Betaproteobacteria toxic small RNA: a 63-nucleotide sequence from Sphaerotilus montanus.
[Rfam]
RNA sequence: UGUCUCCUCCACCCUCCUCCAAAGGUGGAUUGAGCCCGAGGUGAAAACCUCGGGCUUUUUUUC
Numbered sequence: 001u002g003u004c005u006c007c008u009c010c011a012c013c014c015u016c017c018u019c020c021a022a023a024g025g026u027g028g029a030u031u032g033a034g035c036c037c038g039a040g041g042u043g044a045a046a047a048c049c050u051c052g053g054g055c056u057u058u059u060u061u062u063c
Stems, first nucleotide, its partner, number of pairs: 008029006033056008

The match comes from Rfam's covariance-model search (68 bits). Taxonomically the source falls in Sphaerotilus (Bacteria, Pseudomonadota, Betaproteobacteria, Burkholderiales). The base pairs follow the family's consensus structure, which was predicted with WAR. Overexpression in amino aid rich medium attenuates growth, suggesting role in repressing amino acid intake and metabolism.